The family of this 278-nucleotide sequence from Atractosteus spatula is "7SK RNA". Pairs were carried over by alignment from the consensus structure, which is taken from published work. The match comes from Rfam's covariance-model search (215 bits).
[Rfam]
RNA sequence: GGAUGUGAGGGCGAACUGGCUGCGACAUCUGUAACUCCCCAUUGAUCGCUAAGGUUGAUUCGGCUGAUCUGGCUAGGCGGGUGUCCCCUUCUUCCCUCAACACUCCAUGAGCGUCCCUCCCGAAGCCCCGCGCUCGGUGGAAGAGGACCAGUCCACGGGUAAACGAGUAGCUGCUCCCCUGCUAGAAUCUCCAAACAAGCCUAUUUGUAGGAGAGCCAAGCUCCGAGAGUUCUCGCACAUCUCAAUGAGGCGCUGCACGGGGCAGUCUGCCUUCCUUU
Numbered sequence: 001g002g003a004u005g006u007g008a009g010g011g012c013g014a015a016c017u018g019g020c021u022g023c024g025a026c027a028u029c030u031g032u033a034a035c036u037c038c039c040c041a042u043u044g045a046u047c048g049c050u051a052a053g054g055u056u057g058a059u060u061c062g063g064c065u066g067a068u069c070u071g072g073c074u075a076g077g078c079g080g081g082u083g084u085c086c087c088c089u090u091c092u093u094c095c096c097u098c099a100a101c102a103c104u105c106c107a108u109g110a111g112c113g114u115c116c117c118u119c120c121c122g123a124a125g126c127c128c129c130g131c132g133c134u135c136g137g138u139g140g141a142a143g144a145g146g147a148c149c150a151g152u153c154c155a156c157g158g159g160u161a162a163a164c165g166a167g168u169a170g171c172u173g174c175u176c177c178c179c180u181g182c183u184a185g186a187a188u189c190u191c192c193a194a195a196c197a198a199g200c201c202u203a204u205u206u207g208u209a210g211g212a213g214a215g216c217c218a219a220g221c222u223c224c225g226a227g228a229g230u231u232c233u234c235g236c237a238c239a240u241c242u243c244a245a246u247g248a249g250g251c252g253c254u255g256c257a258c259g260g261g262g263c264a265g266u267c268u269g270c271c272u273u274c275c276u277u278u
Stems, first nucleotide, its partner, number of pairs: 001106003006099006013091002018088002024085009035076002039072003044069004048064003114146002116143001118141002120137004125133002170221003174215002189213004195208005244277002247273005252266005